[Rfam]
RNA sequence: AGUAUCGGGUAAUUGCGCGUUAUAUUUCUAACGUGAGGAAGGUCCAUGCUCGUACACUCUGAGAUGGGUGUAGUGUUUGUGCUGGGAUAAAAAAUAAACCCAGGAACAGUGAUGUUACGGCAGUCGAAAGGGCUAAGGCUUAGGCUAUGUCUGAAUAGGCUCGAAGGUGCCAUAGAAACGUAUAUGCUAGUGAAAGCUAGUAUUUGAGACGAGGUAAACCCCACAAACGGGCAACCCAAACUUUUGGUAGGGGCGGCUGGCCUAGUGAAAUGAAGCGAUGGUCGGUAUGGUUCGUUUGAACGAACUUAGAUAGAUGAUUACCGAAGGUGUAAUGUUACCUGCAUUACACUGGAACAAAACAUGGCCUAUAGAU
Numbered sequence: 001a002g003u004a005u006c007g008g009g010u011a012a013u014u015g016c017g018c019g020u021u022a023u024a025u026u027u028c029u030a031a032c033g034u035g036a037g038g039a040a041g042g043u044c045c046a047u048g049c050u051c052g053u054a055c056a057c058u059c060u061g062a063g064a065u066g067g068g069u070g071u072a073g074u075g076u077u078u079g080u081g082c083u084g085g086g087a088u089a090a091a092a093a094a095u096a097a098a099c100c101c102a103g104g105a106a107c108a109g110u111g112a113u114g115u116u117a118c119g120g121c122a123g124u125c126g127a128a129a130g131g132g133c134u135a136a137g138g139c140u141u142a143g144g145c146u147a148u149g150u151c152u153g154a155a156u157a158g159g160c161u162c163g164a165a166g167g168u169g170c171c172a173u174a175g176a177a178a179c180g181u182a183u184a185u186g187c188u189a190g191u192g193a194a195a196g197c198u199a200g201u202a203u204u205u206g207a208g209a210c211g212a213g214g215u216a217a218a219c220c221c222c223a224c225a226a227a228c229g230g231g232c233a234a235c236c237c238a239a240a241c242u243u244u245u246g247g248u249a250g251g252g253g254c255g256g257c258u259g260g261c262c263u264a265g266u267g268a269a270a271u272g273a274a275g276c277g278a279u280g281g282u283c284g285g286u287a288u289g290g291u292u293c294g295u296u297u298g299a300a301c302g303a304a305c306u307u308a309g310a311u312a313g314a315u316g317a318u319u320a321c322c323g324a325a326g327g328u329g330u331a332a333u334g335u336u337a338c339c340u341g342c343a344u345u346a347c348a349c350u351g352g353a354a355c356a357a358a359a360c361a362u363g364g365c366c367u368a369u370a371g372a373u
Base pairs, nucleotide, nucleotide: 004373005372006371007369008322009321010320011319012318013317014316016035017034018033019032020031021030040367041366042365044364045363046362047361048360049231050230051229052228053227054071055070056069057068058067059066077226078225079224080223081222082103083102084101085100086099104118105116106115107114108113119221120220122161123160124159125158130152131151132150133149137146138145139144167219168218169215170214171213184203185202186201187200188199189198190197191196235252236251237250256286257285258284259283260282261281262280287307289306290305291304292303293302294301295300327349328348329347330346331345332344333343334342335341

This 373-nucleotide RNA from Leuconostoc mesenteroides belongs to the Rfam family "Bacterial RNase P class B". About the family: Ribonuclease P (RNase P) is a ubiquitous endoribonuclease, found in archaea, bacteria and eukarya as well as chloroplasts and mitochondria. Its family is annotated with tRNA processing, dimeric ribonuclease P complex and ribonuclease P activity in the Gene Ontology. Rfam's curators put it in the seed alignment. Its Rfam clan is "RNaseP clan". NCBI's taxonomy places the organism under Bacteria, Bacillati, Bacillota, Leuconostoc mesenteroides, Leuconostoc mesenteroides subsp. mesenteroides.